[Rfam]
Record summary
The family of this 100-nucleotide sequence from Bermanella marisrubri is "t44 RNA". It is annotated as a small RNA. This family consists of a number of bacterial RNA genes of between 135 and 170 bases in length. Rfam's curators put it in the seed alignment.
RNA sequence: UAGAAAAUAUACAUAAUCCGCACAUAUAUCGGCACAUUGUUCAGGGUGUCUUAAAAACUCAGUUUUUAGGAUUGGAUAAUGGGAUAUAUGGAGGCUUAAC
Numbered sequence: 001u002a003g004a005a006a007a008u009a010u011a012c013a014u015a016a017u018c019c020g021c022a023c024a025u026a027u028a029u030c031g032g033c034a035c036a037u038u039g040u041u042c043a044g045g046g047u048g049u050c051u052u053a054a055a056a057a058c059u060c061a062g063u064u065u066u067u068a069g070g071a072u073u074g075g076a077u078a079a080u081g082g083g084a085u086a087u088a089u090g091g092a093g094g095c096u097u098a099a100c
Stems, first nucleotide, its partner, number of pairs: 023090008035081009048072007